[Rfam]
RNA sequence: CUGACCUACAUAUGAGGUUGACAGUUGUCAACAACAUACCAGGUAGUCAGCAAUCUUUAAGACUACGAUGCAGAUACUGCAUUGAUUGCAAACAAAACCCGCUCGCCACAGCAUCCACUUGCGAGCAGCAUUCGAAAGGAUGCAGGAUGU
Numbered sequence: 001c002u003g004a005c006c007u008a009c010a011u012a013u014g015a016g017g018u019u020g021a022c023a024g025u026u027g028u029c030a031a032c033a034a035c036a037u038a039c040c041a042g043g044u045a046g047u048c049a050g051c052a053a054u055c056u057u058u059a060a061g062a063c064u065a066c067g068a069u070g071c072a073g074a075u076a077c078u079g080c081a082u083u084g085a086u087u088g089c090a091a092a093c094a095a096a097a098c099c100c101g102c103u104c105g106c107c108a109c110a111g112c113a114u115c116c117a118c119u120u121g122c123g124a125g126c127a128g129c130a131u132u133c134g135a136a137a138g139g140a141u142g143c144a145g146g147a148u149g150u
Base pairs, nucleotide, nucleotide: 011038012037013036014035017032018031019030020029021028022027043066044065045064046063047062048061052087053086054085055084067083068082069081070080071079072078073077121150122149123148128143129142130141131140132139133138

Rfam assigns this 150-nucleotide RNA sequence from Saezia sanguinis to the family "radC RNA". The source organism's lineage runs through Bacteria, Pseudomonadati, Pseudomonadota, Betaproteobacteria and Saezia. The base pairs follow the family's consensus structure, which is taken from published work.